[Rfam]
RNA: Bacterial RNase P class A
RNA sequence: CGAGUUGGCCGGGCGGCCGCGGACCGCCGAAAGGCGGUUCGAGGAAAGUCCGGACUUCACAGAGCAGGGUGAUUGCUAACGGCAAUCCGAGGUGACUCGCGGGACAGUGCCACAGAAAACAAACCGCCACCCGCGCGGGUGGUAAGGGUGAAACGGUGCGGUAAGAGCGCACCAGCACGCCGGGUGACCGGCGUGGCUAGGCAAACCCCACCCGAAGCAAGGCCAAGAAGGCCGCACGCGAGUGCGGCUGCGCAGGCGCCCGAGGGCUGCUCGCCCGAGCCUGCGGGUAGGCCGCUCGAGGCACCCGGCGACGGUGUGCCCAGAUGGAUGGUCGCCGCUCCGCCGCCGUUGCUCAACGCACGGCGGCGGGGAACAGAAUCCGGCUUACAGGCCAACUCGCCCG
Numbered sequence: 001c002g003a004g005u006u007g008g009c010c011g012g013g014c015g016g017c018c019g020c021g022g023a024c025c026g027c028c029g030a031a032a033g034g035c036g037g038u039u040c041g042a043g044g045a046a047a048g049u050c051c052g053g054a055c056u057u058c059a060c061a062g063a064g065c066a067g068g069g070u071g072a073u074u075g076c077u078a079a080c081g082g083c084a085a086u087c088c089g090a091g092g093u094g095a096c097u098c099g100c101g102g103g104a105c106a107g108u109g110c111c112a113c114a115g116a117a118a119a120c121a122a123a124c125c126g127c128c129a130c131c132c133g134c135g136c137g138g139g140u141g142g143u144a145a146g147g148g149u150g151a152a153a154c155g156g157u158g159c160g161g162u163a164a165g166a167g168c169g170c171a172c173c174a175g176c177a178c179g180c181c182g183g184g185u186g187a188c189c190g191g192c193g194u195g196g197c198u199a200g201g202c203a204a205a206c207c208c209c210a211c212c213c214g215a216a217g218c219a220a221g222g223c224c225a226a227g228a229a230g231g232c233c234g235c236a237c238g239c240g241a242g243u244g245c246g247g248c249u250g251c252g253c254a255g256g257c258g259c260c261c262g263a264g265g266g267c268u269g270c271u272c273g274c275c276c277g278a279g280c281c282u283g284c285g286g287g288u289a290g291g292c293c294g295c296u297c298g299a300g301g302c303a304c305c306c307g308g309c310g311a312c313g314g315u316g317u318g319c320c321c322a323g324a325u326g327g328a329u330g331g332u333c334g335c336c337g338c339u340c341c342g343c344c345g346c347c348g349u350u351g352c353u354c355a356a357c358g359c360a361c362g363g364c365g366g367c368g369g370g371g372a373a374c375a376g377a378a379u380c381c382g383g384c385u386u387a388c389a390g391g392c393c394a395a396c397u398c399g400c401c402c403g
Stems, first nucleotide, its partner, number of pairs: 001399010011388001012336007020041009046386003050383005055217004062272004067213005072086005087101001088099004102208002107206002109202003124147002126143007155173006175197001176195008221293004264276004300320005305314003